[Rfam]
RNA: Histone 3' UTR stem-loop
Organism: Branchiostoma floridae
RNA sequence: ACCCCGGCCCUUUUCAGGGCCACCGAAAUGAUUCUAGAAAGGGCUAU
Numbered sequence: 001a002c003c004c005c006g007g008c009c010c011u012u013u014u015c016a017g018g019g020c021c022a023c024c025g026a027a028a029u030g031a032u033u034c035u036a037g038a039a040a041g042g043g044c045u046a047u
Stems, first nucleotide, its partner, number of pairs: 006021006